[Rfam]
RNA sequence: GCGUUUAAAGGGCAAAGCCAUUGAAAGAUGGUGACGCAAAGCUAAAGGGUCUUAAUCACAUACGUGAAAGACAGCCAGUUGCUGGU
Number, nucleotide and partner (000 for none) at each position: 001g000002c000003g000004u000005u000006u000007a000008a000009a000010g000011g000012g037013c036014a000015a000016a000017g032018c031019c030020a029021u028022u027023g000024a000025a000026a000027g022028a021029u020030g019031g018032u017033g000034a000035c000036g013037c012038a000039a000040a080041g079042c078043u077044a000045a000046a000047g076048g075049g072050u071051c070052u000053u000054a000055a000056u067057c066058a065059c064060a000061u000062a000063c000064g059065u058066g057067a056068a000069a000070g051071a050072c049073a000074g000075c048076c047077a043078g042079u041080u040081g000082c000083u000084g000085g000086u000